[Rfam]
RNA sequence: AAAUUGAACGGCGGUGGGGUUCGCCUAUGCUACUGAAGCUAAUGACUCCUGUUCCUCA
Numbered sequence: 001a002a003a004u005u006g007a008a009c010g011g012c013g014g015u016g017g018g019g020u021u022c023g024c025c026u027a028u029g030c031u032a033c034u035g036a037a038g039c040u041a042a043u044g045a046c047u048c049c050u051g052u053u054c055c056u057c058a
Stems, first nucleotide, its partner, number of pairs: 010025004016049006029039003

Fluoride riboswitch aptamer (crcB RNA motif): a 58-nucleotide RNA from Pelotomaculum propionicicum. A search with the family's covariance model found it, with a score of 34 bits. NCBI's taxonomy places the organism under Bacteria, Clostridia, Eubacteriales, Desulfotomaculaceae, Pelotomaculum.